[Rfam]
Notes:
Shown here is a 130-nucleotide RNA sequence from Microtus ochrogaster, a member of the family "Small Cajal body specific RNA 4". The family's consensus secondary structure was predicted with RNAfold. For this family Rfam cites "Cajal body-specific small nuclear RNAs: a novel class of 2'-O-methylation and pseudouridylation guide RNAs" (Darzacq et al., EMBO J, 2002). The match comes from Rfam's covariance-model search (67 bits). scaRNAs are a specific class of small nuclear RNAs which localise to the Cajal bodies and guide the modification of RNA polymerase II transcribed spliceosomal RNAs U1, U2, U4, U5 and U12. ACA26 belongs to the H/ACA box class of guide RNAs as it has the predicted hairpin-hinge-hairpin-tail structure, conserved H/ACA-box motifs and is found associated with GAR1.
RNA sequence: AACAGGACCCAGAAGGCUGAGGCCGAUGAAGUAAGAUUUUGCUGACACACUCCUAGGAAAAAAAGAGCUGGAGAGACAAGUCCUAUUGGGGUGGGGGGGAUCACAGGGCUAACUGUAUUACCCAACAUUA
Numbered sequence: 001a002a003c004a005g006g007a008c009c010c011a012g013a014a015g016g017c018u019g020a021g022g023c024c025g026a027u028g029a030a031g032u033a034a035g036a037u038u039u040u041g042c043u044g045a046c047a048c049a050c051u052c053c054u055a056g057g058a059a060a061a062a063a064a065g066a067g068c069u070g071g072a073g074a075g076a077c078a079a080g081u082c083c084u085a086u087u088g089g090g091g092u093g094g095g096g097g098g099g100a101u102c103a104c105a106g107g108g109c110u111a112a113c114u115g116u117a118u119u120a121c122c123c124a125a126c127a128u129u130a
Base pairs, nucleotide, nucleotide: 003057004054005053006052007051015043016042017041019039020038021037023035065123067121076114079110080109081108082107083106084105092103093102094101